[Rfam]
RNA sequence: GAAGAUGCAUCUUAGAGUCUUCACAGCUUUCUUGUGUUAAUCGUGUUAUCUUUGGCCGGGUAUCACUGUUAGUGAAUC
Numbered sequence: 001g002a003a004g005a006u007g008c009a010u011c012u013u014a015g016a017g018u019c020u021u022c023a024c025a026g027c028u029u030u031c032u033u034g035u036g037u038u039a040a041u042c043g044u045g046u047u048a049u050c051u052u053u054g055g056c057c058g059g060g061u062a063u064c065a066c067u068g069u070u071a072g073u074g075a076a077u078c
Stems, first nucleotide, its partner, number of pairs: 001022006037072005043066003047062005
The record is a 78-nucleotide RNA sequence, which matches "L13-Bacteroidia ribosomal protein leader" in Rfam. On this family, see Eckert and Weinberg, BMC Microbiol 2020: "Discovery of 20 novel ribosomal leader candidates in bacteria and archaea". It is annotated as a cis-regulatory leader. The sequence is in the family's curated seed alignment.